[Rfam]
RNA sequence: AAUGUUGAUAGAGGCGCGAAGCAAAAGAAGUUUUGGGGAAUCGGCAGGUGUUGAUCCAAGACGGAGGUAUCCUUCGCCGAACUUAAGCAAUCAGGCAUGAGGCUUAGGUGGGUCUGCAGUGAAUAAUUGCAGGACUGUCUACUGAAAAGUAGGUGAGCUAUCCUUAAU
Numbered sequence: 001a002a003u004g005u006u007g008a009u010a011g012a013g014g015c016g017c018g019a020a021g022c023a024a025a026a027g028a029a030g031u032u033u034u035g036g037g038g039a040a041u042c043g044g045c046a047g048g049u050g051u052u053g054a055u056c057c058a059a060g061a062c063g064g065a066g067g068u069a070u071c072c073u074u075c076g077c078c079g080a081a082c083u084u085a086a087g088c089a090a091u092c093a094g095g096c097a098u099g100a101g102g103c104u105u106a107g108g109u110g111g112g113u114c115u116g117c118a119g120u121g122a123a124u125a126a127u128u129g130c131a132g133g134a135c136u137g138u139c140u141a142c143u144g145a146a147a148a149g150u151a152g153g154u155g156a157g158c159u160a161u162c163c164u165u166a167a168u
Stems, first nucleotide, its partner, number of pairs: 007162005016077006023070001030062008081109008091099001110136002113133008138153006
RNA: Lysine riboswitch aptamer
Organism: Clostridium aminobutyricum